[Rfam]
RNA sequence: GUGCUAUGAUGAUGAGCUAGUCAUGCACCACUCUGAGACUGAUUGUUCAAUCCGUGCUGAUUCUUGACUCAUACCCUUUUAUCUGAGCAC
Numbered sequence: 001g002u003g004c005u006a007u008g009a010u011g012a013u014g015a016g017c018u019a020g021u022c023a024u025g026c027a028c029c030a031c032u033c034u035g036a037g038a039c040u041g042a043u044u045g046u047u048c049a050a051u052c053c054g055u056g057c058u059g060a061u062u063c064u065u066g067a068c069u070c071a072u073a074c075c076c077u078u079u080u081a082u083c084u085g086a087g088c089a090c
Base pairs, nucleotide, nucleotide: 001090002089003088004087